[Rfam]
mir-2944 microRNA precursor family: a 91-nucleotide RNA sequence from Anopheles sinensis. Rfam 15.1 lists 66 matches to the family in 42 species. The match comes from Rfam's covariance-model search (67 bits). Gene Ontology terms of the family: miRNA-mediated post-transcriptional gene silencing and RISC complex.

RNA sequence: GGCGGUGGCAAUCGAAGGAACUCCCGGUGUGAUAUGUUGGAAUGUAAUCCGUACCAUAUCACAGCGGUAGUUACCUGAUAUUGCUGCCGUU
Numbered sequence: 001g002g003c004g005g006u007g008g009c010a011a012u013c014g015a016a017g018g019a020a021c022u023c024c025c026g027g028u029g030u031g032a033u034a035u036g037u038u039g040g041a042a043u044g045u046a047a048u049c050c051g052u053a054c055c056a057u058a059u060c061a062c063a064g065c066g067g068u069a070g071u072u073a074c075c076u077g078a079u080a081u082u083g084c085u086g087c088c089g090u091u
Stems, first nucleotide, its partner, number of pairs: 003089009016076003019072004024067003028063009